[Rfam]
RNA sequence: CCCCCUCGCGGCGAAAAAAUCUAAUGGCGGAUAAUCGAGAGCUAUUGUAUUUUUGCGCCAGCGGGGG
Number, nucleotide and partner (000 for none) at each position: 001c067002c066003c065004c064005c063006u000007c061008g000009c000010g059011g058012c057013g056014a000015a054016a053017a052018a051019a050020u049021c000022u047023a046024a045025u044026g043027g042028c041029g000030g000031a000032u000033a000034a000035u000036c000037g000038a000039g000040a000041g028042c027043u026044a025045u024046u023047g022048u000049a020050u019051u018052u017053u016054u015055g000056c013057g012058c011059c010060a000061g007062c000063g005064g004065g003066g002067g001
RNA: mir-B8 microRNA precursor family
Organism: Varicellovirus bovinealpha5